[Rfam]
RNA: SAM-I/IV (S-adenosyl methionine) riboswitch aptamer
RNA sequence: CCCGCGCAUUAAGAGUUGGGCCGACGCCCAUACCAACCUGCCUACCCAGGUAAGGUGGUUCGCUGUAGCGAAUGUGGUUUCUAUAGAAACAAUCCCAUGGGAAUAC
Numbered sequence: 001c002c003c004g005c006g007c008a009u010u011a012a013g014a015g016u017u018g019g020g021c022c023g024a025c026g027c028c029c030a031u032a033c034c035a036a037c038c039u040g041c042c043u044a045c046c047c048a049g050g051u052a053a054g055g056u057g058g059u060u061c062g063c064u065g066u067a068g069c070g071a072a073u074g075u076g077g078u079u080u081c082u083a084u085a086g087a088a089a090c091a092a093u094c095c096c097a098u099g100g101g102a103a104u105a106c
Base pairs, nucleotide, nucleotide: 006075007074008073009072010071015031017030018029019028020027021026032059033058034057037055038054039053040051041050042049045101046100047099048098077090078089079088080087